RNA: Alphaproteobacterial sRNA ar7
RNA sequence: GAUUGAUUACGCCGAGGGUCUGACAACCGGCCUGUCCCCCGCCAUGUCAGACUUGGACAAAGGCCUAUCCCCCUCUCCGGGCCUUUGUCCUCCUUUUCUAAGCCGCCAUGGCGCCCCUCCAGGCCAUGGCGGCUUUUC
Numbered sequence: 001g002a003u004u005g006a007u008u009a010c011g012c013c014g015a016g017g018g019u020c021u022g023a024c025a026a027c028c029g030g031c032c033u034g035u036c037c038c039c040c041g042c043c044a045u046g047u048c049a050g051a052c053u054u055g056g057a058c059a060a061a062g063g064c065c066u067a068u069c070c071c072c073c074u075c076u077c078c079g080g081g082c083c084u085u086u087g088u089c090c091u092c093c094u095u096u097u098c099u100a101a102g103c104c105g106c107c108a109u110g111g112c113g114c115c116c117c118u119c120c121a122g123g124c125c126a127u128g129g130c131g132g133c134u135u136u137u138c
Stems, first nucleotide, its partner, number of pairs: 019051007029043003055090011100134001103132010